[Rfam]
RNA sequence: UUCAUCGUUAGGUGGAAUCUGAAGGAAAUCGGCGGCAAAUCUCCGCCCUAAGGGACACGAACUUCAGAUAAGGCUAGGUGUAUUUGAAAUGAGAUUGUCAAACAAAUCAAAGUUCUUACUGCCAAAGGAUACAUCAUCAAAUAAAUGAAGUAGGGAGAUGGAGCGGAAGAAUGAGUG
Numbered sequence: 001u002u003c004a005u006c007g008u009u010a011g012g013u014g015g016a017a018u019c020u021g022a023a024g025g026a027a028a029u030c031g032g033c034g035g036c037a038a039a040u041c042u043c044c045g046c047c048c049u050a051a052g053g054g055a056c057a058c059g060a061a062c063u064u065c066a067g068a069u070a071a072g073g074c075u076a077g078g079u080g081u082a083u084u085u086g087a088a089a090u091g092a093g094a095u096u097g098u099c100a101a102a103c104a105a106a107u108c109a110a111a112g113u114u115c116u117u118a119c120u121g122c123c124a125a126a127g128g129a130u131a132c133a134u135c136a137u138c139a140a141a142u143a144a145a146u147g148a149a150g151u152a153g154g155g156a157g158a159u160g161g162a163g164c165g166g167a168a169g170a171a172u173g174a175g176u177g
Stems, first nucleotide, its partner, number of pairs: 001016006030175001036169001041163005046155005062150005073142001075140001077135007088114003093108004
Dot-bracket structure: ((((((....)))))).............(.....(....((((((((((...........(((((......(.(.(((((((....(((..((((........))))...)))..............)))))))....).)...))))))))))...))))).....).....)..